[Rfam]
RNA sequence: UUGAAGUUCCAUUUACAAAUGAUAAGAUUUCGAUUUUAAUCUAGUCGGGUUAUUGACAGUAGAGGAGCAAUAACUAAUUUCUUGUUCUGUCAAGGAAACCGGUAUUGCUCCUUU
Dot-bracket structure: .......((.((......))))......................................((((((((((((......(((((........)))))......))))))))))))
RNA: Plastid-psbA-1 3UTR RNA
Organism: Simmondsia chinensis